[Rfam]
RNA sequence: CCUAUGUAAAGGCAAACUUAUUGAAAGAUAAGGACGCAAAGCCACAGGUCUAAUGCGGAAGCUAUGACGGCUGGGCUGCCAUC
Numbered sequence: 001c002c003u004a005u006g007u008a009a010a011g012g013c014a015a016a017c018u019u020a021u022u023g024a025a026a027g028a029u030a031a032g033g034a035c036g037c038a039a040a041g042c043c044a045c046a047g048g049u050c051u052a053a054u055g056c057g058g059a060a061g062c063u064a065u066g067a068c069g070g071c072u073g074g075g076c077u078g079c080c081a082u083c
Base pairs, nucleotide, nucleotide: 012037013036017032018031019030020029021028022027040077041076042075043074045073046072047071048068049067050066055062056061

c-di-GMP-I riboswitch aptamer: an 83-nucleotide RNA from Paenibacillus validus. It scores 78 bits against the family's covariance model. Rfam links the family to the GO term cyclic-di-GMP binding. The source organism's lineage runs through Bacteria, Bacillota, Bacilli, Caryophanales and Paenibacillus.